[Rfam]
RNA sequence: GAGUGACGAUGAUUGGCAAGGUUAAGCUGAAGAAGCAGAGCCGUAGCGAAAGCGAGUCUGAAUAGGGCGAGGAGUCAAUGGUUGUCGACCCGAAACCAAGUGACCUACCCAUGUGCAGGUUGAAGGUGCGGUAAGACGCACUGGAGGACCGAACCAGGAUACGUUGAAAAGUAUUUGGAUGACGUGUGGGUAGCGGAGAAAUUCCAAUCGAACUUGGAGAUAGCUGGUU
Numbered sequence: 001g002a003g004u005g006a007c008g009a010u011g012a013u014u015g016g017c018a019a020g021g022u023u024a025a026g027c028u029g030a031a032g033a034a035g036c037a038g039a040g041c042c043g044u045a046g047c048g049a050a051a052g053c054g055a056g057u058c059u060g061a062a063u064a065g066g067g068c069g070a071g072g073a074g075u076c077a078a079u080g081g082u083u084g085u086c087g088a089c090c091c092g093a094a095a096c097c098a099a100g101u102g103a104c105c106u107a108c109c110c111a112u113g114u115g116c117a118g119g120u121u122g123a124a125g126g127u128g129c130g131g132u133a134a135g136a137c138g139c140a141c142u143g144g145a146g147g148a149c150c151g152a153a154c155c156a157g158g159a160u161a162c163g164u165u166g167a168a169a170a171g172u173a174u175u176u177g178g179a180u181g182a183c184g185u186g187u188g189g190g191u192a193g194c195g196g197a198g199a200a201a202u203u204c205c206a207a208u209c210g211a212a213c214u215u216g217g218a219g220a221u222a223g224c225u226g227g228u229u
Base pairs, nucleotide, nucleotide: 005086006085007084008083009082010081012079013078014077015076016075017074020042021041022040023039026036027035028034046053047052056068057067058066059065089227090226092224096217097216098215099214100213101212105193106192107191108190109189110188111187112186113185114184115183116181118150119149120148121147125142126141127140128139129138130137154178155177156176158175159174160173161172162171195205196204197203
RNA: Bacterial large subunit ribosomal RNA, nucleotides 600 to 828
Organism: Falseniella ignava